Small nucleolar RNA SNORD34: an 82-nucleotide RNA from Aegilops tauschii.
The organism belongs to Aegilops tauschii, within Eukaryota.
It is annotated as a C/D-box small nucleolar RNA.
Pairs were carried over by alignment from the consensus structure, which was predicted with PFOLD.
About the family: snoRNA U34 is found in intron 5 of the ribosomal protein L13a gene in humans.
[Rfam]
RNA sequence: UCUACCUAUGAUGAGUUGCAAACCUUAUUCCCUACAUUGUUUGACCAAUCUUGUGAGAAUUUAUUUAACAUCUGAGGAUGGA
Numbered sequence: 001u002c003u004a005c006c007u008a009u010g011a012u013g014a015g016u017u018g019c020a021a022a023c024c025u026u027a028u029u030c031c032c033u034a035c036a037u038u039g040u041u042u043g044a045c046c047a048a049u050c051u052u053g054u055g056a057g058a059a060u061u062u063a064u065u066u067a068a069c070a071u072c073u074g075a076g077g078a079u080g081g082a
Stems, first nucleotide, its partner, number of pairs: 001082002004079001005077002